The family of this 163-nucleotide sequence from Komagataeibacter saccharivorans is "FMN riboswitch aptamer (RFN element)". The match comes from Rfam's covariance-model search (110 bits). The base pairs follow the family's consensus structure, which is taken from published work.

Nucleotides: 163
Base pairs, nucleotide, nucleotide: 004160005159006158007157008156009155010154017029018028019027031143032142033132034131035072036071037070038069067130068129075108076107112128113127114126115125116124134146135145136144
Number, partner (000 for none) and nucleotide at each position: 001000a002000g003000g004160c005159g006158u007157u008156c009155u010154c011000a012000g013000g014000g015000c016000g017029g018028g019027g020000c021000g022000a023000a024000a025000u026000u027019c028018c029017c030000c031143a032142c033132c034131g035072g036071c037070g038069g039000u040000g041000a042000g043000u044000g045000u046000u047000c048000c049000c050000u051000g052000u053000c054000c055000g056000c057000a058000g059000g060000g061000g062000c063000a064000u065000a066000a067130g068129u069038c070037c071036g072035c073000g074000a075108g076107c077000g078000c079000c080000c081000g082000g083000u084000c085000g086000c087000a088000g089000u090000c091000a092000u093000g094000c095000g096000g097000g098000c099000g100000g101000g102000g103000u104000c105000a106000a107076g108075c109000a110000g111000a112128u113127c114126c115125g116124g117000u118000g119000u120000g121000a122000u123000u124116c125115c126114g127113g128112a129068a130067c131034c132033g133000a134146c135145g136144g137000u138000u139000a140000c141000a142032g143031u144136c145135c146134g147000g148000a149000u150000g151000a152000g153000a154010g155009a156008g157007a158006a159005c160004g161000a162000g163000a

About the family: The RFN element is a highly conserved domain that is found frequently in the 5'-untranslated regions of prokaryotic mRNAs that encode for flavin mononucleotide (FMN) biosynthesis and transport proteins.